[Rfam]
RNA: TPP riboswitch aptamer (THI element)
Organism: Alteribacillus iranensis
Nucleotides: 104
Base pairs, nucleotide, nucleotide: 006092007091008090009089010088011054012053013052014051017027018026019025020024034047035046036045037044038043060085061084062083063082066079067078068077069076
Number, partner (000 for none) and nucleotide at each position: 001000a002000a003000u004000c005000a006092c007091c008090a009089c010088u011054a012053g013052g014051g015000g016000c017027g018026c019025c020024u021000c022000a023000a024020a025019g026018g027017c028000u029000g030000a031000g032000a033000a034047g035046g036045u037044a038043u039000c040000a041000u042000c043038g044037u045036a046035c047034c048000u049000g050000u051014c052013c053012c054011u055000c056000a057000g058000a059000a060085c061084c062083u063082g064000a065000u066079a067078u068077g069076g070000u071000u072000a073000g074000u075000a076069c077068c078067a079066u080000c081000g082063u083062a084061g085060g086000g087000a088010a089009g090008u091007g092006g093000g094000c095000g096000u097000a098000g099000a100000c101000c102000a103000u104000a